RNA sequence: AACGAAGUACGCCAAACCAAUUGCGAGAUUGGGACGGAAAGCCAAGGGUCUGUUACUAAGGAUGAAACAGACAGCCGGUUGCCACU
Numbered sequence: 001a002a003c004g005a006a007g008u009a010c011g012c013c014a015a016a017c018c019a020a021u022u023g024c025g026a027g028a029u030u031g032g033g034a035c036g037g038a039a040a041g042c043c044a045a046g047g048g049u050c051u052g053u054u055a056c057u058a059a060g061g062a063u064g065a066a067a068c069a070g071a072c073a074g075c076c077g078g079u080u081g082c083c084a085c086u
Base pairs, nucleotide, nucleotide: 012037013036017032018031019030020029021028022027040080041079042078043077046076047075048072049071050070051069052068053067054066
RNA: c-di-GMP-I riboswitch aptamer